[Rfam]
RNA sequence: UGGGGAGUAUGCUCGCAAGAGUGAAACUCAAAGGAAUUGACGGGGACCCGCACAAGCGGUGGAUUAUGUGGAUUAAUUCGAUGCAACGCGAAGAACCUUACCAGGGUUUGACAUGUCAAGAACCUCCCAGAAAUGGGAGGGUGCCCUAACGGGAGCUUGAACACAGGUGGUGCAUGGCUGUCGUCAGCUCGUGCUGUGAAGUGUAUAGUUAAGUCUCAUAACGAGCGCAACCCUCGUCUUUAGUUGCCAUUUGGUUCUCUAAAGAGACUGCCAGUGUAAGCUGGAGGAAGGUGAGGAUGACGUCAAGUCAGCAUGCCCCUUACAUCCUGGGCUUCACACGUAAUACAAUGGUUGGGACAAUCAGAAGCGAUCUCGUGAGAGCUAGCGGAUCUGCUAAACCCAACCUCAGUUCGGAUUGUAGGCUGCAACUCGCCUACAUGAAGCCGGAAUCGCUAGUAAUCGCCAGUCAGCUAUAUGGCGGUGAAUACGUUCCCGGGUCUUGUACACA
Numbered sequence: 001u002g003g004g005g006a007g008u009a010u011g012c013u014c015g016c017a018a019g020a021g022u023g024a025a026a027c028u029c030a031a032a033g034g035a036a037u038u039g040a041c042g043g044g045g046a047c048c049c050g051c052a053c054a055a056g057c058g059g060u061g062g063a064u065u066a067u068g069u070g071g072a073u074u075a076a077u078u079c080g081a082u083g084c085a086a087c088g089c090g091a092a093g094a095a096c097c098u099u100a101c102c103a104g105g106g107u108u109u110g111a112c113a114u115g116u117c118a119a120g121a122a123c124c125u126c127c128c129a130g131a132a133a134u135g136g137g138a139g140g141g142u143g144c145c146c147u148a149a150c151g152g153g154a155g156c157u158u159g160a161a162c163a164c165a166g167g168u169g170g171u172g173c174a175u176g177g178c179u180g181u182c183g184u185c186a187g188c189u190c191g192u193g194c195u196g197u198g199a200a201g202u203g204u205a206u207a208g209u210u211a212a213g214u215c216u217c218a219u220a221a222c223g224a225g226c227g228c229a230a231c232c233c234u235c236g237u238c239u240u241u242a243g244u245u246g247c248c249a250u251u252u253g254g255u256u257c258u259c260u261a262a263a264g265a266g267a268c269u270g271c272c273a274g275u276g277u278a279a280g281c282u283g284g285a286g287g288a289a290g291g292u293g294a295g296g297a298u299g300a301c302g303u304c305a306a307g308u309c310a311g312c313a314u315g316c317c318c319c320u321u322a323c324a325u326c327c328u329g330g331g332c333u334u335c336a337c338a339c340g341u342a343a344u345a346c347a348a349u350g351g352u353u354g355g356g357a358c359a360a361u362c363a364g365a366a367g368c369g370a371u372c373u374c375g376u377g378a379g380a381g382c383u384a385g386c387g388g389a390u391c392u393g394c395u396a397a398a399c400c401c402a403a404c405c406u407c408a409g410u411u412c413g414g415a416u417u418g419u420a421g422g423c424u425g426c427a428a429c430u431c432g433c434c435u436a437c438a439u440g441a442a443g444c445c446g447g448a449a450u451c452g453c454u455a456g457u458a459a460u461c462g463c464c465a466g467u468c469a470g471c472u473a474u475a476u477g478g479c480g481g482u483g484a485a486u487a488c489g490u491u492c493c494c495g496g497g498u499c500u501u502g503u504a505c506a507c508a
Stems, first nucleotide, its partner, number of pairs: 002029003011022004038506002040503003044500007052490002056453005061346001063344008071335002077092004101330007115162001116160005166319002169317004175313002177308003180304001182302002187226006193202003207216002232296004237265007247254002268287002271284005350405007362393003367386002372381003412443001417438007459482007

The record is a 508-nucleotide part of an RNA from Chlamydomonas schloesseri, which matches "Archaeal small subunit ribosomal RNA" in Rfam. Its Rfam clan is "SSU clan". NCBI's taxonomy places the organism under Eukaryota, Viridiplantae, Chlorophyceae, Chlamydomonadales, Chlamydomonas.